[Rfam]
RNA sequence: GGCGAUAAACGGUAUUUGGAAUAAGCGUAGUGGACCCGGGGGCAGUGCCCGGCGCCUCCACCAUUGUGUUACUCUUGCUCUUCACGGUAAAGAUUCAUCUCGUUAAAGAGCAGGUCUUUGGGGGCGAAACAGGCUCGACACGCGUAGUAAAGAUUUACUUUUCGCUCGGUAUUGUACCACCGUCAUCGGGCUAUUUUUACAGAUGCCAACGAUAAUUCAGAGGCACUCGCUGUUGCUGCAUAA
Numbered sequence: 001g002g003c004g005a006u007a008a009a010c011g012g013u014a015u016u017u018g019g020a021a022u023a024a025g026c027g028u029a030g031u032g033g034a035c036c037c038g039g040g041g042g043c044a045g046u047g048c049c050c051g052g053c054g055c056c057u058c059c060a061c062c063a064u065u066g067u068g069u070u071a072c073u074c075u076u077g078c079u080c081u082u083c084a085c086g087g088u089a090a091a092g093a094u095u096c097a098u099c100u101c102g103u104u105a106a107a108g109a110g111c112a113g114g115u116c117u118u119u120g121g122g123g124g125c126g127a128a129a130c131a132g133g134c135u136c137g138a139c140a141c142g143c144g145u146a147g148u149a150a151a152g153a154u155u156u157a158c159u160u161u162u163c164g165c166u167c168g169g170u171a172u173u174g175u176a177c178c179a180c181c182g183u184c185a186u187c188g189g190g191c192u193a194u195u196u197u198u199a200c201a202g203a204u205g206c207c208a209a210c211g212a213u214a215a216u217u218c219a220g221a222g223g224c225a226c227u228c229g230c231u232g233u234u235g236c237u238g239c240a241u242a243a
Stems, first nucleotide, its partner, number of pairs: 001166005014156001017153001026144003030141003036052005053126007167182004
RNA: permuted transfer-messenger RNA